[Rfam]
The record is a 100-nucleotide RNA sequence from Sphingobium subterraneum, which matches "Glycine riboswitch aptamer" in Rfam.
On this family, see Mandal et al., Science 2004: "A glycine-dependent riboswitch that uses cooperative binding to control gene expression".

RNA sequence: GGUCAAGAUGCGGGAGAGCGUCGGGGCAGGGCAACCUGCAGCGACCGCCGAAGGAGCAACCGCCCCGGAAUCUCUCAGGCCCACGGACCGCAUCUCGAUC
Numbered sequence: 001g002g003u004c005a006a007g008a009u010g011c012g013g014g015a016g017a018g019c020g021u022c023g024g025g026g027c028a029g030g031g032c033a034a035c036c037u038g039c040a041g042c043g044a045c046c047g048c049c050g051a052a053g054g055a056g057c058a059a060c061c062g063c064c065c066c067g068g069a070a071u072c073u074c075u076c077a078g079g080c081c082c083a084c085g086g087a088c089c090g091c092a093u094c095u096c097g098a099u100c
Base pairs, nucleotide, nucleotide: 006095007094008093009092010091011090012089013088020045021044022043023042047080048079049078050076051075054074055073056072060068061067